[Rfam]
RNA sequence: ACCGAUCUUCGGUAGUGGCCGUCGGAAGUGGGCGCGAGGCGCUUCCCCGCCGGCUUCGAUCGGAGACCGGU
Number, nucleotide and partner (000 for none) at each position: 001a071002c070003c069004g068005a000006u066007c065008u000009u063010c062011g061012g060013u059014a000015g000016u000017g055018g054019c053020c052021g051022u000023c049024g048025g047026a000027a000028g000029u000030g000031g000032g000033c000034g000035c000036g000037a000038g000039g000040c000041g000042c000043u000044u000045c000046c000047c025048c024049g023050c000051c021052g020053g019054c018055u017056u000057c000058g000059a013060u012061c011062g010063g009064a000065g007066a006067c000068c004069g003070g002071u001
The record is a 71-nucleotide sequence from Actinocrinis puniceicyclus, which matches "Actino-pnp RNA" in Rfam.
By type it is a cis-regulatory element.
The base pairs follow the family's consensus structure, which is taken from published work.
The organism belongs to Actinocrinis, within Bacteria.